[Rfam]
RNA: Pseudomon-Rho RNA
RNA sequence: UUCGGCCUCGCGACCAUUUCUUCCGUCGCCCUCUGCAUGCCGUCGCCGACGCACUUCAGCCUCAUAAAGCACAACGAACCUCGUUCGUCUCCUGCUGCGCGGC
Numbered sequence: 001u002u003c004g005g006c007c008u009c010g011c012g013a014c015c016a017u018u019u020c021u022u023c024c025g026u027c028g029c030c031c032u033c034u035g036c037a038u039g040c041c042g043u044c045g046c047c048g049a050c051g052c053a054c055u056u057c058a059g060c061c062u063c064a065u066a067a068a069g070c071a072c073a074a075c076g077a078a079c080c081u082c083g084u085u086c087g088u089c090u091c092c093u094g095c096u097g098c099g100c101g102g103c
Base pairs, nucleotide, nucleotide: 010029011028012027013026014025039103040102041101042100044099045098046097048095075087076086077085078084079083